The family of this 73-nucleotide sequence from bacterium HR36 is "tRNA".

[Rfam]
RNA sequence: AGGGGCAUAGCUCAACUGGUAGAGCAGCGGUCUCCAAAACCGCAGGUUGGGGGUUCGAAUCCCUCUGCCCCUG
Numbered sequence: 001a002g003g004g005g006c007a008u009a010g011c012u013c014a015a016c017u018g019g020u021a022g023a024g025c026a027g028c029g030g031u032c033u034c035c036a037a038a039a040c041c042g043c044a045g046g047u048u049g050g051g052g053g054u055u056c057g058a059a060u061c062c063c064u065c066u067g068c069c070c071c072u073g
Base pairs, nucleotide, nucleotide: 001072002071003070004069005068006067007066010025011024012023013022027043028042029041030040031039049065050064051063052062053061